RNA sequence: CAUAUCGUUGUUUUCCGAGCCGUAUUGUCUAAGGAGCCUGCUGAUGGGCUCUAUGAUGGGACGGCCGAUUCGGGUACGGAAGGAAACGCCCGUGCCUCCGCGUGAUUGGAAAGGAAAACGUAUGACGGCUUC
Numbered sequence: 001c002a003u004a005u006c007g008u009u010g011u012u013u014u015c016c017g018a019g020c021c022g023u024a025u026u027g028u029c030u031a032a033g034g035a036g037c038c039u040g041c042u043g044a045u046g047g048g049c050u051c052u053a054u055g056a057u058g059g060g061a062c063g064g065c066c067g068a069u070u071c072g073g074g075u076a077c078g079g080a081a082g083g084a085a086a087c088g089c090c091c092g093u094g095c096c097u098c099c100g101c102g103u104g105a106u107u108g109g110a111a112a113g114g115a116a117a118a119c120g121u122a123u124g125a126c127g128g129c130u131u132c
Base pairs, nucleotide, nucleotide: 011118012117013116014115015114016113019065020064021063022062023061025059026058027057028056029055033052034051035050036049037048038047039046040045072097073096074095075094076093077092078091079090082087098109099108

Annotation:
Molybdenum/Tungsten riboswitch aptamer (Moco RNA motif): a 132-nucleotide RNA sequence from Acetonema longum. NCBI's taxonomy places the organism under Bacteria, Negativicutes, Acetonemataceae, Acetonema, Acetonema longum. Rfam 15.1 lists 1,248 matches to the family in 836 species.